[Rfam]
RNA sequence: GGACAAUUAAAAUUAUAUCUAUUGGUCUUGCUCGUCGUAACUAGGAUCUGAUUCCCUUGCUAACCAUCUUGAUAUAUCACCACCCAUAUUUUGAGUCU
Numbered sequence: 001g002g003a004c005a006a007u008u009a010a011a012a013u014u015a016u017a018u019c020u021a022u023u024g025g026u027c028u029u030g031c032u033c034g035u036c037g038u039a040a041c042u043a044g045g046a047u048c049u050g051a052u053u054c055c056c057u058u059g060c061u062a063a064c065c066a067u068c069u070u071g072a073u074a075u076a077u078c079a080c081c082a083c084c085c086a087u088a089u090u091u092u093g094a095g096u097c098u
Base pairs, nucleotide, nucleotide: 001098002097003096004095043058044057045053
Dot-bracket structure: ((((......................................(((.......)...))....................................))))